[Rfam]
RNA sequence: GUAGGUUAUGGAGACAUCUAUCCACAAACCCUACUUGGUAAAAUAGUAGGUGGGCUCUGUUGUAUUGCUGGUGUGCUGGUGAUCGCAUUGCCCAUUCCCAUCAUUGUGAACAAC
Numbered sequence: 001g002u003a004g005g006u007u008a009u010g011g012a013g014a015c016a017u018c019u020a021u022c023c024a025c026a027a028a029c030c031c032u033a034c035u036u037g038g039u040a041a042a043a044u045a046g047u048a049g050g051u052g053g054g055c056u057c058u059g060u061u062g063u064a065u066u067g068c069u070g071g072u073g074u075g076c077u078g079g080u081g082a083u084c085g086c087a088u089u090g091c092c093c094a095u096u097c098c099c100a101u102c103a104u105u106g107u108g109a110a111c112a113a114c
Base pairs, nucleotide, nucleotide: 001114002113004111007108008107009106010105011104013102014101020095021094037077038076039075040074049063
The record is a 114-nucleotide RNA sequence from Astyanax mexicanus, which matches "Potassium channel RNA editing signal" in Rfam. It scores 81 bits against the family's covariance model. Rfam links the family to the GO term adenosine to inosine editing.